[Rfam]
A member of the RNA family "MIR396 microRNA precursor family" from Oryza meyeriana, 152 nucleotides long.
Rfam links the family to the GO terms RISC complex and miRNA-mediated post-transcriptional gene silencing.
The organism belongs to Oryza meyeriana, within Eukaryota.
RNA sequence: CUUUGUGAUCUUCCACAGCUUUCUUGAACUGCAUGAAUCCGAUCCUCGCGUCGCUGAUGAUGAUCUGAUUUCAGAGAUCGAUCAUAUGGUUCUCUUUGGCUUUGCGCCGGAGAGAGCAUGCAGUUCAAUAAAGCUGUGGGAAAUUGCAGAGA
Numbered sequence: 001c002u003u004u005g006u007g008a009u010c011u012u013c014c015a016c017a018g019c020u021u022u023c024u025u026g027a028a029c030u031g032c033a034u035g036a037a038u039c040c041g042a043u044c045c046u047c048g049c050g051u052c053g054c055u056g057a058u059g060a061u062g063a064u065c066u067g068a069u070u071u072c073a074g075a076g077a078u079c080g081a082u083c084a085u086a087u088g089g090u091u092c093u094c095u096u097u098g099g100c101u102u103u104g105c106g107c108c109g110g111a112g113a114g115a116g117c118a119u120g121c122a123g124u125u126c127a128a129u130a131a132a133g134c135u136g137u138g139g140g141a142a143a144u145u146g147c148a149g150a151g152a
Stems, first nucleotide, its partner, number of pairs: 003149005013139003017135006024128004029123007